Rfam assigns this 177-nucleotide RNA from Succinivibrio dextrinosolvens to the family "Group II catalytic intron D1-D4-3". The family has 406 seed sequences and 4,274 matches in Rfam 15.1. NCBI's taxonomy places the organism under Bacteria, Pseudomonadati, Gammaproteobacteria, Succinivibrio, Succinivibrio dextrinosolvens.
Nucleotides: 177
Stems, first nucleotide, its partner, number of pairs: 001016006028177001031174001036168001040163006046154005062149006073141003077137007089115003094109004
Number, partner (000 for none) and nucleotide at each position: 001016u002015a003014c004013a005012u006011c007000g008000u009000g010000a011006g012005g013004u014003g015002u016001g017000g018000g019000c020000u021000g022000a023000a024000g025000g026000a027000a028177g029000u030000u031174g032000c033000u034000a035000g036168c037000a038000u039000c040163u041162a042161u043160c044159u045158g046154a047153a048152c049151c050150u051000a052000c053000g054000a055000a056000c057000a058000g059000a060000a061000a062149c063148u064147g065146c066145a067144u068000a069000u070000g071000a072000g073141g074140c075139a076000a077137u078136a079135u080134g081133u082132g083131u084000a085000u086000c087000a088000a089115g090114g091113u092000a093000a094109g095108u096107c097106u098000g099000c100000g101000a102000a103000a104000g105000a106097a107096g108095a109094u110000g111000a112000a113091g114090c115089c116000c117000g118000a119000u120000a121000c122000u123000g124000a125000a126000c127000c128000g129000u130000a131083g132082c133081a134080c135079a136078u137077a138000a139075u140074g141073u142000a143000a144067a145066u146065g147064c148063a149062g150050a151049g152048g153047u154046u155000g156000c157000a158045u159044g160043g161042a162041u163040a164000g165000a166000g167000a168036g169000a170000a171000u172000u173000a174031u175000c176000u177028c